[Rfam]
Nucleotides: 146
Base pairs, nucleotide, nucleotide: 002145003144004143005142006141007140008139009138011136012135013134014133015132016131018129019128020127021126023124024123025122028119029118031116032115033114
Number, partner (000 for none) and nucleotide at each position: 001000u002145g003144u004143u005142a006141a007140a008139a009138a010000u011136u012135u013134c014133a015132u016131c017000c018129a019128u020127u021126u022000u023124u024123a025122c026000a027000g028119u029118u030000a031116a032115a033114a034000a035000a036000c037000u038000g039000g040000u041000c042000a043000c044000u045000a046000u047000a048000c049000u050000u051000c052000a053000g054000c055000a056000c057000a058000a059000g060000g061000u062000a063000c064000a065000a066000g067000c068000a069000g070000c071000a072000u073000g074000c075000c076000a077000u078000g079000u080000g081000u082000c083000a084000u085000u086000c087000u088000u089000u090000g091000a092000c093000u094000a095000u096000u097000u098000u099000g100000u101000u102000a103000g104000c105000c106000a107000u108000g109000c110000u111000a112000g113000u114033u115032u116031u117000a118029a119028a120000u121000a122025g123024u124023a125000c126021a127020a128019a129018u130000g131016g132015a133014u134013g135012a136011a137000u138009u139008u140007u141006u142005u143004a144003a145002c146000a